[Rfam]
RNA sequence: GGAUAUGAGGGAGGAUGACCUGGCUGUGAGAUCUGAUAUGCCAUUGAUUGCAUGGUUUGAUCUGACUGAUCUGGCUAGCUUAGGCAGGUGUUCCCUUUCUUCCUCAACAUUCCAUGUGUGUUCCUGUUAACGAUGUAUGCUUGGUUAAUGAGUAGAGCCUCCCCAACAGACAUGGUAUUGUUCACUGGUCAAAGGGGUGUGGUAGCUGUGCUCCCUGCUGGAAGCUCUAAGCUCACUCAAGGUCCAUUUGUAGAUAAAUGUAGGGUAAUCAAGCAUCCAAUACUGAAGACACAUCCAAAUGAGAAGUUGCAUGCACCAGUCUGCCACUGGCU
Numbered sequence: 001g002g003a004u005a006u007g008a009g010g011g012a013g014g015a016u017g018a019c020c021u022g023g024c025u026g027u028g029a030g031a032u033c034u035g036a037u038a039u040g041c042c043a044u045u046g047a048u049u050g051c052a053u054g055g056u057u058u059g060a061u062c063u064g065a066c067u068g069a070u071c072u073g074g075c076u077a078g079c080u081u082a083g084g085c086a087g088g089u090g091u092u093c094c095c096u097u098u099c100u101u102c103c104u105c106a107a108c109a110u111u112c113c114a115u116g117u118g119u120g121u122u123c124c125u126g127u128u129a130a131c132g133a134u135g136u137a138u139g140c141u142u143g144g145u146u147a148a149u150g151a152g153u154a155g156a157g158c159c160u161c162c163c164c165a166a167c168a169g170a171c172a173u174g175g176u177a178u179u180g181u182u183c184a185c186u187g188g189u190c191a192a193a194g195g196g197g198u199g200u201g202g203u204a205g206c207u208g209u210g211c212u213c214c215c216u217g218c219u220g221g222a223a224g225c226u227c228u229a230a231g232c233u234c235a236c237u238c239a240a241g242g243u244c245c246a247u248u249u250g251u252a253g254a255u256a257a258a259u260g261u262a263g264g265g266u267a268a269u270c271a272a273g274c275a276u277c278c279a280a281u282a283c284u285g286a287a288g289a290c291a292c293a294u295c296c297a298a299a300u301g302a303g304a305a306g307u308u309g310c311a312u313g314c315a316c317c318a319g320u321c322u323g324c325c326a327c328u329g330g331c332u
Stems, first nucleotide, its partner, number of pairs: 001113003006106005017098002022095002028092002031089005037083001039078001041074003046071004050066001122172001124169003127144004132140001145166002152162001154160001205274003212267001213265006226254003231251002235247001297332001301327001303325001306320004